Shown here is a 73-nucleotide sequence from Ceraceosorus bombacis, a member of the family "tRNA". By type it is a transfer RNA. From the family's description: Transfer RNA (tRNA) molecules are approximately 80 nucleotides in length. Gene Ontology term of the family: triplet codon-amino acid adaptor activity. The organism belongs to Ceraceosorus, within Eukaryota. The family's consensus secondary structure is taken from published work.
[Rfam]
RNA sequence: GCAACUUUGGCCUAAUGGUUAGGGCCCAUGAUUUCGGCUCAUGUGACUAGUGGUUCGAGUCCGCUAAGGUGCU
Dot-bracket structure: (((.(((..((((........)))).(((((.......))))).....(((((.......)))))))).))).